Shown here is an 86-nucleotide RNA sequence from Eptatretus burgeri, a member of the family "mir-132 microRNA precursor family".
The base pairs follow the family's consensus structure, which was predicted with RNAalifold.
On this family, see Chen et al., Genes Dev 2005: "The developmental miRNA profiles of zebrafish as determined by small RNA cloning".
Rfam links the family to the GO terms RISC complex and miRNA-mediated post-transcriptional gene silencing.
A search with the family's covariance model found it, with a score of 56 bits.
[Rfam]
RNA sequence: GUCUCGGACCCCCGUGGCGUUAGACUGUUACUCUGGCCUAUUUGUCCCCGUUGGUAACAGUCUAUAGCCAUGGUUGUCCGGACGGG
Numbered sequence: 001g002u003c004u005c006g007g008a009c010c011c012c013c014g015u016g017g018c019g020u021u022a023g024a025c026u027g028u029u030a031c032u033c034u035g036g037c038c039u040a041u042u043u044g045u046c047c048c049c050g051u052u053g054g055u056a057a058c059a060g061u062c063u064a065u066a067g068c069c070a071u072g073g074u075u076g077u078c079c080g081g082a083c084g085g086g
Stems, first nucleotide, its partner, number of pairs: 012073002015070004023062010